Shown here is a 75-nucleotide RNA, a member of the family "RAGATH-18 RNA". By type it is a small RNA. The sequence is in the family's curated seed alignment.

[Rfam]
RNA sequence: CUUGUGGAGAGUAUACAAAGAUGUGAGUAGUAUUUGAAUUUAUUCAAUGCAAAAACAUACUCGAUGAAGCAAGAA
Numbered sequence: 001c002u003u004g005u006g007g008a009g010a011g012u013a014u015a016c017a018a019a020g021a022u023g024u025g026a027g028u029a030g031u032a033u034u035u036g037a038a039u040u041u042a043u044u045c046a047a048u049g050c051a052a053a054a055a056c057a058u059a060c061u062c063g064a065u066g067a068a069g070c071a072a073g074a075a
Base pairs, nucleotide, nucleotide: 001073002072003071004070005069009062010061011060012059013058022057023056024055030050031049032048035046036045
Actinobacteria, Firmicutes, Fusobacteria, Thermotogae (1 example).